Glm Y RNA activator of glmS mRNA: a 160-nucleotide RNA from Budvicia aquatica. Pairs were carried over by alignment from the consensus structure, which is taken from published work. For this family Rfam cites "Temperature-responsive in vitro RNA structurome of Yersinia pseudotuberculosis" (Righetti et al., Proc Natl Acad Sci U S A, 2016). From the family's description: This family consists of a number of bacterial RNA genes of around 167 bases in length. The tke1 RNA gene is present in Escherichia coli, Shigella flexneri, Yersinia pestis and Salmonella species where it is found between the yfhK and purL genes. The function of this RNA is unknown.
[Rfam]
RNA sequence: CGUCGCUCAUUCAACUAUUUAUGUCAGAGCAGUGAAAACUGAACUACAUAAGCCUCCGAAUGAUGCCAAAGCCAUGGUACCUAUCGUCUACGACACCGAUAUCAACUGCUUUAAGCAGCUUAUCAAACAUCAGACGACACGUUGAGUGAGGUGCCAGCCU
Numbered sequence: 001c002g003u004c005g006c007u008c009a010u011u012c013a014a015c016u017a018u019u020u021a022u023g024u025c026a027g028a029g030c031a032g033u034g035a036a037a038a039c040u041g042a043a044c045u046a047c048a049u050a051a052g053c054c055u056c057c058g059a060a061u062g063a064u065g066c067c068a069a070a071g072c073c074a075u076g077g078u079a080c081c082u083a084u085c086g087u088c089u090a091c092g093a094c095a096c097c098g099a100u101a102u103c104a105a106c107u108g109c110u111u112u113a114a115g116c117a118g119c120u121u122a123u124c125a126a127a128c129a130u131c132a133g134a135c136g137a138c139a140c141g142u143u144g145a146g147u148g149a150g151g152u153g154c155c156a157g158c159c160u
Stems, first nucleotide, its partner, number of pairs: 005066002007063006019051006026045002076155007085136005098124004138148003